[Rfam]
RNA sequence: AAUGGUGAGUAGUCGCGGUUCCUUUAUAGGAGCUGAGGAAAGUCCAGGCUCGCACAGUGCUGAGAUGCCUGUAGUGUUCGUGCCAUCUGCAAGGGUGGGCAGCCAAUCUUGAUAUUGGCUGACGGCGGUGAAAUCAUGCUAAGUCUCUAAGGAUAUGCUGAGAAUAGCCUGAAAGUGCCACAGUGACGAUGCUUUUCUGGAAACGGAAAAGGUGGAACGGGUAAACCCCACGAGCGAGCAACCCAAAUUUUGGUCGGGGCACCAUCCCGCGGGAAAUGAACCUAAAGGAUGGAUCAACCAAUCGUUGAUAGAUAGAUGACUACUGCUUCCUGUACGAGGCUUGACGCUGUUUGCAGUACGGAAGUACAAAACCUGGCUUACAGCC
Numbered sequence: 001a002a003u004g005g006u007g008a009g010u011a012g013u014c015g016c017g018g019u020u021c022c023u024u025u026a027u028a029g030g031a032g033c034u035g036a037g038g039a040a041a042g043u044c045c046a047g048g049c050u051c052g053c054a055c056a057g058u059g060c061u062g063a064g065a066u067g068c069c070u071g072u073a074g075u076g077u078u079c080g081u082g083c084c085a086u087c088u089g090c091a092a093g094g095g096u097g098g099g100c101a102g103c104c105a106a107u108c109u110u111g112a113u114a115u116u117g118g119c120u121g122a123c124g125g126c127g128g129u130g131a132a133a134u135c136a137u138g139c140u141a142a143g144u145c146u147c148u149a150a151g152g153a154u155a156u157g158c159u160g161a162g163a164a165u166a167g168c169c170u171g172a173a174a175g176u177g178c179c180a181c182a183g184u185g186a187c188g189a190u191g192c193u194u195u196u197c198u199g200g201a202a203a204c205g206g207a208a209a210a211g212g213u214g215g216a217a218c219g220g221g222u223a224a225a226c227c228c229c230a231c232g233a234g235c236g237a238g239c240a241a242c243c244c245a246a247a248u249u250u251u252g253g254u255c256g257g258g259g260c261a262c263c264a265u266c267c268c269g270c271g272g273g274a275a276a277u278g279a280a281c282c283u284a285a286a287g288g289a290u291g292g293a294u295c296a297a298c299c300a301a302u303c304g305u306u307g308a309u310a311g312a313u314a315g316a317u318g319a320c321u322a323c324u325g326c327u328u329c330c331u332g333u334a335c336g337a338g339g340c341u342u343g344a345c346g347c348u349g350u351u352u353g354c355a356g357u358a359c360g361g362a363a364g365u366a367c368a369a370a371a372c373c374u375g376g377c378u379u380a381c382a383g384c385c
Base pairs, nucleotide, nucleotide: 004385005384006383007381008324009323010322011321012320013319014318016035017034018033019032020031021030040379041378042377044376045375046374047373048372049238050237051236052235053234054072055071056070057069059068060067078233079232080231081230082229083098084097085096086095087094088093099123100121101120102119103118104117105116106115107114124228125227127169128168129167135160136159138158139157143154144153145152175226176225177222178221179220192211193210194209195208196207197206198205199204242258243257244256262292263291264290265289266288267287293309294308295307296306297305298304326364327363328362329361330360332359333358334357335356
RNA: Bacterial RNase P class B
Organism: Neobacillus rhizophilus